SAM riboswitch aptamer (S box leader): a 102-nucleotide RNA sequence from Lysobacter sp. N42.
[Rfam]
RNA sequence: CAUCCAUCGAGACCGGCUGAGGGACAGGCCCUUUGACGCCGGGGCAACCAGCACGCGAGUGCCAGGUGCCAAUUCCUGCGGCGUCAUGCCGGAAGAUGGUCG
Numbered sequence: 001c002a003u004c005c006a007u008c009g010a011g012a013c014c015g016g017c018u019g020a021g022g023g024a025c026a027g028g029c030c031c032u033u034u035g036a037c038g039c040c041g042g043g044g045c046a047a048c049c050a051g052c053a054c055g056c057g058a059g060u061g062c063c064a065g066g067u068g069c070c071a072a073u074u075c076c077u078g079c080g081g082c083g084u085c086a087u088g089c090c091g092g093a094a095g096a097u098g099g100u101c102g
Stems, first nucleotide, its partner, number of pairs: 001102001004099005013042005021031003025078004043070004048066002051062004074094001079091005